[Rfam]
RNA sequence: GCCGGUCCUCGGUAGUGGUCUUCGGCCCGCCCGCAGGCGCGCCGAGGGCUUCGAUCGAUGGCCGGC
Numbered sequence: 001g002c003c004g005g006u007c008c009u010c011g012g013u014a015g016u017g018g019u020c021u022u023c024g025g026c027c028c029g030c031c032c033g034c035a036g037g038c039g040c041g042c043c044g045a046g047g048g049c050u051u052c053g054a055u056c057g058a059u060g061g062c063c064g065g066c
Stems, first nucleotide, its partner, number of pairs: 001066007009058005017050010028039003
The record is a 66-nucleotide RNA sequence from Spinactinospora alkalitolerans, which matches "Actino-pnp RNA" in Rfam.